[Rfam]
Background:
A member of the RNA family "mir-1302 microRNA precursor family" from Bos indicus x Bos taurus, 52 nucleotides long. The organism belongs to Bos, within Eukaryota. The match comes from Rfam's covariance-model search (64 bits). Pairs were carried over by alignment from the consensus structure, which was predicted with WAR.

RNA sequence: UUUUUAGAGUAAGUAUAUCUCAUGCAACAUUUGGGAUGUACUUACACUAAAA
Numbered sequence: 001u002u003u004u005u006a007g008a009g010u011a012a013g014u015a016u017a018u019c020u021c022a023u024g025c026a027a028c029a030u031u032u033g034g035g036a037u038g039u040a041c042u043u044a045c046a047c048u049a050a051a052a
Stems, first nucleotide, its partner, number of pairs: 006048002009045004014040003018036004022031001

For this family Rfam cites "Application of massively parallel sequencing to microRNA profiling and discovery in human embryonic stem cells" (Morin et al., Genome Res, 2008).